[Rfam]
RNA sequence: CGUGCCUGAUCAGCACAUUGGGUGUGACUGAAUAAACUUACUGGCAUAUAGCUGGUUAAGGUGAUACAACACAGGUGGUGCUGCUCCGAAAGGAGAAUCGACUUACCAGUCGGGUUGUAGGCAGAGAUGAUUUCUAAACUGUAGAAAUGCCCAUCUCUUGUUGGUAUACAGGAUUCCAACCACCCUCCCU
Numbered sequence: 001c002g003u004g005c006c007u008g009a010u011c012a013g014c015a016c017a018u019u020g021g022g023u024g025u026g027a028c029u030g031a032a033u034a035a036a037c038u039u040a041c042u043g044g045c046a047u048a049u050a051g052c053u054g055g056u057u058a059a060g061g062u063g064a065u066a067c068a069a070c071a072c073a074g075g076u077g078g079u080g081c082u083g084c085u086c087c088g089a090a091a092g093g094a095g096a097a098u099c100g101a102c103u104u105a106c107c108a109g110u111c112g113g114g115u116u117g118u119a120g121g122c123a124g125a126g127a128u129g130a131u132u133u134c135u136a137a138a139c140u141g142u143a144g145a146a147a148u149g150c151c152c153a154u155c156u157c158u159u160g161u162u163g164g165u166a167u168a169c170a171g172g173a174u175u176c177c178a179a180c181c182a183c184c185c186u187c188c189c190u
Stems, first nucleotide, its partner, number of pairs: 002016004020185005027062002040056006065119006072083003076108004084095004098113005123158007131147004139171004160180005
RNA: manA RNA